Small nucleolar RNA SNORA53: a 253-nucleotide sequence from Scyliorhinus torazame. Rfam 15.1 lists 1,090 matches to the family in 800 species. The family's RNA type in Rfam is H/ACA-box small nucleolar RNA. Rfam links the family to the GO terms nucleolus and RNA processing. The snoRNA ACA53 belongs to the H/ACA family of pseudouridylation guide snoRNAs. A search with the family's covariance model found it, with a score of 130 bits. Pairs were carried over by alignment from the consensus structure, which was predicted with RNAalifold. The source organism's lineage runs through Eukaryota, Eumetazoa, Vertebrata, Galeomorphii and Scyliorhinus.
RNA sequence: CACACGCUCCUUAGAUCCACCUUUGGGAUGUGUCUGUUAGGCCUCACUGGUAGAUCUCUCUCACCCCGGUGUUGGGUUCUCCAGUGGGCUGGCAGGUGACAUUCAUCAACUUUACUGGUUGUACAGUCAAAGGUGCUUGAGUCAUUGGCGUGUCAAAGUAUUAUACCUGCACAGUAGCUUCUCUGUUCUGAUGGGAAUAACCUGUUAUUUCAGGCUGUUUCUGCCAUCAGGACUUUGUUGCUGUGUGGACAUG
Number, nucleotide and partner (000 for none) at each position: 001c000002a153003c152004a151005c150006g149007c148008u147009c000010c141011u140012u139013a138014g137015a000016u000017c000018c135019a134020c133021c132022u131023u130024u129025g128026g104027g103028a102029u101030g100031u098032g097033u096034c095035u000036g000037u092038u091039a090040g089041g000042c088043c000044u087045c086046a085047c084048u000049g000050g081051u000052a080053g079054a078055u000056c000057u000058c000059u000060c000061u000062c000063a000064c000065c000066c000067c000068g000069g000070u000071g000072u000073u000074g000075g000076g000077u000078u054079c053080u052081c050082c000083a000084g047085u046086g045087g044088g042089c040090u039091g038092g037093c000094a000095g034096g033097u032098g031099a000100c030101a029102u028103u027104c026105a000106u000107c121108a120109a119110c118111u117112u000113u000114a000115c000116u000117g111118g110119u109120u108121g107122u000123a000124c000125a000126g000127u000128c025129a024130a023131a022132g021133g020134u019135g018136c000137u014138u013139g012140a011141g010142u000143c000144a000145u000146u000147g008148g007149c006150g005151u004152g003153u002154c000155a000156a000157a000158g000159u000160a000161u000162u000163a000164u000165a000166c000167c248168u247169g246170c245171a244172c000173a000174g241175u000176a239177g238178c237179u000180u000181c000182u000183c000184u000185g000186u000187u231188c230189u229190g228191a227192u226193g225194g224195g000196a000197a000198u223199a222200a000201c214202c213203u212204g000205u000206u000207a000208u000209u000210u000211c000212a203213g202214g201215c000216u000217g000218u000219u000220u000221c000222u199223g198224c194225c193226a192227u191228c190229a189230g188231g187232a000233c000234u000235u000236u000237g178238u177239u176240g000241c174242u000243g000244u171245g170246u169247g168248g167249a000250c000251a000252u000253g000